[Rfam]
RNA sequence: GGCUUUCUUCGCGGCGGAGCUCGACCGCCCACACCGGUCCUAGUCGAUUUCAUCGCCGAGUACAGGGACCGGUUCGGGGUCGAGCCGAUCUGUGCCGUGCUGACCGAGCACGGCUGCCCGAUCGCCCCG
Numbered sequence: 001g002g003c004u005u006u007c008u009u010c011g012c013g014g015c016g017g018a019g020c021u022c023g024a025c026c027g028c029c030c031a032c033a034c035c036g037g038u039c040c041u042a043g044u045c046g047a048u049u050u051c052a053u054c055g056c057c058g059a060g061u062a063c064a065g066g067g068a069c070c071g072g073u074u075c076g077g078g079g080u081c082g083a084g085c086c087g088a089u090c091u092g093u094g095c096c097g098u099g100c101u102g103a104c105c106g107a108g109c110a111c112g113g114c115u116g117c118c119c120g121a122u123c124g125c126c127c128c129g
Base pairs, nucleotide, nucleotide: 013029014028015027016026017025075129076128077127078126079125086124087123089121090120092118
Shown here is a 129-nucleotide RNA from Microlunatus sp. Gsoil 973, a member of the family "ALIL pseudoknot". The base pairs follow the family's consensus structure, which is taken from published work. The literature on the family includes a 2008 paper in J Biol Chem by Mazauric et al., "Apical loop-internal loop RNA pseudoknots: a new type of stimulator of -1 translational frameshifting in bacteria". The source organism's lineage runs through Bacteria, Bacillati, Actinomycetes, Propionibacteriales and Microlunatus.